This 101-nucleotide sequence from Xylanimonas protaetiae belongs to the Rfam family "TPP riboswitch aptamer (THI element)". A search with the family's covariance model found it, with a score of 63 bits. NCBI's taxonomy places the organism under Bacteria, Bacillati, Actinomycetota, Micrococcales, Xylanimonas.

RNA sequence: GGCGUCGGCGCGGGGCGCCGGACCUGGACGGUCCGGCUGAGAUGCACCCGUCGAACCUGAUCUAGGUAGUGCUAGCGAAGGGAACGCUCAUGAGCACCGUC
Numbered sequence: 001g002g003c004g005u006c007g008g009c010g011c012g013g014g015g016c017g018c019c020g021g022a023c024c025u026g027g028a029c030g031g032u033c034c035g036g037c038u039g040a041g042a043u044g045c046a047c048c049c050g051u052c053g054a055a056c057c058u059g060a061u062c063u064a065g066g067u068a069g070u071g072c073u074a075g076c077g078a079a080g081g082g083a084a085c086g087c088u089c090a091u092g093a094g095c096a097c098c099g100u101c
Stems, first nucleotide, its partner, number of pairs: 007088004011050004016044001017037008056081003062075004
Dot-bracket structure: ......((((((((.(((((((((.....))))))))......)..)))).....(((...((((......))))...)))...)))).............